Shown here is a 131-nucleotide RNA from Phyllostomus discolor, a member of the family "Small nucleolar RNA SNORA42/SNORA80 family". Its family is annotated with nucleolus and RNA processing in the Gene Ontology. For this family Rfam cites "A computational screen for mammalian pseudouridylation guide H/ACA RNAs" (Schattner et al., RNA, 2006). The organism belongs to Phyllostomus, within Eukaryota. Rfam describes the family as follows. The members of this family belong to the H/ACA class of snoRNAs that guide the sites of modification of uridines to pseudouridines. Human ACA42 (SNORA42) was cloned from HeLa cells by immunoprecipitation with anti-GAR1 antibody. Its is predicted to guide the pseudouridylation of residues U109 and U572 of 18S rRNA. ACA42 shares the same host gene with ACA26, ACA46, ACA50. This family also includes mammalian snoRNA ACA67 (SNORA80) which was identified by computational screening and its expression in mouse experimentally verified by Northern blot and primer extension analysis. ACA67 is proposed to guide the pseudouridylation of the same 18S rRNA residues as ACA42.

RNA sequence: GCACGGGCUGGGAUUUGUGGCAGGCCCCUACCCUGGGUCUCUCACAGUGCCCCGUGCCAGAGCACCCUGGCCCGGAACCAUUGCCCAGCCUUCGCCCGUGGGCUGCGGGCGCUGAAGCGGGCCGCACAGUG
Numbered sequence: 001g002c003a004c005g006g007g008c009u010g011g012g013a014u015u016u017g018u019g020g021c022a023g024g025c026c027c028c029u030a031c032c033c034u035g036g037g038u039c040u041c042u043c044a045c046a047g048u049g050c051c052c053c054g055u056g057c058c059a060g061a062g063c064a065c066c067c068u069g070g071c072c073c074g075g076a077a078c079c080a081u082u083g084c085c086c087a088g089c090c091u092u093c094g095c096c097c098g099u100g101g102g103c104u105g106c107g108g109g110c111g112c113u114g115a116a117g118c119g120g121g122c123c124g125c126a127c128a129g130u131g
Stems, first nucleotide, its partner, number of pairs: 001057004005052004015047006022040003025036002068124006079114002084109002086105006
The base pairs follow the family's consensus structure, which was predicted with RNAalifold.